[Rfam]
RNA sequence: AUUUAUAUGGCGCUGAAUCUUUUUGAGCGGGGGAACCAAUUUUUUGGGGUGAAUCCUUUUUAAGGUAGGGUAAUCUCUCAACCCGAACCCGACAGCUAACCUCGUAGGCGAUAGGGGGAAACUUU
Numbered sequence: 001a002u003u004u005a006u007a008u009g010g011c012g013c014u015g016a017a018u019c020u021u022u023u024u025g026a027g028c029g030g031g032g033g034a035a036c037c038a039a040u041u042u043u044u045u046g047g048g049g050u051g052a053a054u055c056c057u058u059u060u061u062a063a064g065g066u067a068g069g070g071u072a073a074u075c076u077c078u079c080a081a082c083c084c085g086a087a088c089c090c091g092a093c094a095g096c097u098a099a100c101c102u103c104g105u106a107g108g109c110g111a112u113a114g115g116g117g118g119a120a121a122c123u124u125u
Base pairs, nucleotide, nucleotide: 011110012109013108014107018026019025027105028104029103030102031101032100037046038045047090048089049088055065056064057063058062068084069083070082071081
Description:
Shown here is a 125-nucleotide RNA sequence from Fervidibacillus halotolerans, a member of the family "c-di-AMP riboswitch aptamer (ydaO/yuaA leader)". Gene Ontology terms of the family: cyclic-di-AMP binding and regulation of gene expression. The base pairs follow the family's consensus structure. A search with the family's covariance model found it, with a score of 108 bits. From the family's description: This family represents a conserved RNA structure found upstream of the ydaO and yuaA genes in Bacillus subtilis and related genes in other bacteria.